The record is a 53-nucleotide sequence from Acidisphaera rubrifaciens, which matches "serC leader" in Rfam. From the family's description: This family is a putative regulatory RNA structure that is found upstream of the serC-serA operon in some alpha-proteobacteria. A search with the family's covariance model found it, with a score of 50 bits. The source organism's lineage runs through Bacteria, Pseudomonadati, Alphaproteobacteria, Acetobacterales and Acidisphaera rubrifaciens. Pairs were carried over by alignment from the consensus structure. By type it is a cis-regulatory leader.
RNA sequence: UGGCGGGCCACGUCCCCCCACCGGGACGCUUCUCUUCUGUAAGGGAGAGCUGA
Numbered sequence: 001u002g003g004c005g006g007g008c009c010a011c012g013u014c015c016c017c018c019c020a021c022c023g024g025g026a027c028g029c030u031u032c033u034c035u036u037c038u039g040u041a042a043g044g045g046a047g048a049g050c051u052g053a
Stems, first nucleotide, its partner, number of pairs: 011028006033048006